[Rfam]
RNA sequence: GUCGGGGGUCGGCGGAUACAACACCCGCGAGGGAAAGAAGCCGGCACGUCCUAGAGCGUGUUUUCAGCCCCCGACACCCGGCG
Numbered sequence: 001g002u003c004g005g006g007g008g009u010c011g012g013c014g015g016a017u018a019c020a021a022c023a024c025c026c027g028c029g030a031g032g033g034a035a036a037g038a039a040g041c042c043g044g045c046a047c048g049u050c051c052u053a054g055a056g057c058g059u060g061u062u063u064u065c066a067g068c069c070c071c072c073g074a075c076a077c078c079c080g081g082c083g
Base pairs, nucleotide, nucleotide: 001075002074003073004072005071006070007069008068010043011042012041013040024033025032026031044061045060046059047058048057049056
Dot-bracket structure: ((((((((.((((..........(((....)))......))))((((((......))))))......))))))))........